[Rfam]
RNA sequence: AAAACUGUUUUCUAGGGUUCCGCGGAAGAAAUUCCGGCCUGGUCCGAGAGAAAACACACAGUCGUAUUAUGCUGUGACACGGAAGGAUAAAAGCCUGGGAGAU
Numbered sequence: 001a002a003a004a005c006u007g008u009u010u011u012c013u014a015g016g017g018u019u020c021c022g023c024g025g026a027a028g029a030a031a032u033u034c035c036g037g038c039c040u041g042g043u044c045c046g047a048g049a050g051a052a053a054a055c056a057c058a059c060a061g062u063c064g065u066a067u068u069a070u071g072c073u074g075u076g077a078c079a080c081g082g083a084a085g086g087a088u089a090a091a092a093g094c095c096u097g098g099g100a101g102a103u
Base pairs, nucleotide, nucleotide: 007055008054009053010052011051012050015045016044020042021041022039023036024035025034026033027032057076058075059074060073061072062071078098080101084096085095086094
Overview:
Rfam assigns this 103-nucleotide sequence from Heyndrickxia coagulans to the family "Guanidine-I riboswitch aptamer". NCBI's taxonomy places the organism under Bacteria, Bacillati, Bacillota, Heyndrickxia, Heyndrickxia coagulans. This family represents a conserved RNA structure found upstream of the ykkC and yxkD genes in Bacillus subtilis and related genes in other bacteria.